[Rfam]
RNA sequence: CUAUGUUGUCUUUCUUGGACGUUUCCUCCCUAAACUUGGGCCGUACUUCGUGUGCGGCCUUUUUUUCGGGAUUAU
Numbered sequence: 001c002u003a004u005g006u007u008g009u010c011u012u013u014c015u016u017g018g019a020c021g022u023u024u025c026c027u028c029c030c031u032a033a034a035c036u037u038g039g040g041c042c043g044u045a046c047u048u049c050g051u052g053u054g055c056g057g058c059c060u061u062u063u064u065u066u067c068g069g070g071a072u073u074a075u
Stems, first nucleotide, its partner, number of pairs: 008020004038060009
RNA: Makes More Granules Regulator RNA (mmgR)